[Rfam]
RNA sequence: UUAUAUAGAGGAGAAGCUGUGAGCUUAUCUCAUUAUAAUAAGAUAAGCUUACGGCUUAUCCUCUAUAUAA
Numbered sequence: 001u002u003a004u005a006u007a008g009a010g011g012a013g014a015a016g017c018u019g020u021g022a023g024c025u026u027a028u029c030u031c032a033u034u035a036u037a038a039u040a041a042g043a044u045a046a047g048c049u050u051a052c053g054g055c056u057u058a059u060c061c062u063c064u065a066u067a068u069a070a
Stems, first nucleotide, its partner, number of pairs: 003068005009062003014057001017054005024047006
A member of the RNA family "mir-965 microRNA precursor family" from Diversispora epigaea, 70 nucleotides long. Lineage of the source: Eukaryota > Opisthokonta > Glomeromycetes > Diversisporaceae > Diversispora. Gene Ontology terms of the family: miRNA-mediated post-transcriptional gene silencing and RISC complex. The family's consensus secondary structure was predicted with RNAalifold.